[Rfam]
RNA: 6S / SsrS RNA
Organism: Paenibacillus albus
RNA sequence: UACAUCCUGCGAUGUACGUUACGGCUUAUCACUUGUUUUGAACCAAUGGCUGUAUUUAGGGAGACUCAAUUGAAGCGCGGCUGACAUGCCCUCGAAAAGGGAUCUCAAAACCGCUUCUGCGGCCACCCACCUGCGAGAGCGGGUUCAGAAACAAGCAAGCUGGACGGCAGAGCGGGUUCAAA
Numbered sequence: 001u002a003c004a005u006c007c008u009g010c011g012a013u014g015u016a017c018g019u020u021a022c023g024g025c026u027u028a029u030c031a032c033u034u035g036u037u038u039u040g041a042a043c044c045a046a047u048g049g050c051u052g053u054a055u056u057u058a059g060g061g062a063g064a065c066u067c068a069a070u071u072g073a074a075g076c077g078c079g080g081c082u083g084a085c086a087u088g089c090c091c092u093c094g095a096a097a098a099g100g101g102a103u104c105u106c107a108a109a110a111c112c113g114c115u116u117c118u119g120c121g122g123c124c125a126c127c128c129a130c131c132u133g134c135g136a137g138a139g140c141g142g143g144u145u146c147a148g149a150a151a152c153a154a155g156c157a158a159g160c161u162g163g164a165c166g167g168c169a170g171a172g173c174g175g176g177u178u179c180a181a182a
Base pairs, nucleotide, nucleotide: 004178006176007175008174009173010172013169014168015167017166018165019164035152036151037150038149039147040146041145042144043143044142059128060127061126063124065122066121072117073116074115075114076113077112084105089101090100091099092098